Shown here is a 38-nucleotide RNA sequence from Pectobacterium atrosepticum, a member of the family "JUMPstart RNA". Rfam's curators put it in the seed alignment. The family has 128 seed sequences and 288 matches in Rfam 15.1. By type it is a cis-regulatory element.
[Rfam]
RNA sequence: CAGCGCUUUGAUAGCUGUGAGUCAAGGGCGGUAGCGUU
Numbered sequence: 001c002a003g004c005g006c007u008u009u010g011a012u013a014g015c016u017g018u019g020a021g022u023c024a025a026g027g028g029c030g031g032u033a034g035c036g037u038u
Stems, first nucleotide, its partner, number of pairs: 008025005

Overview: Pairs were carried over by alignment from the consensus structure, which is taken from published work.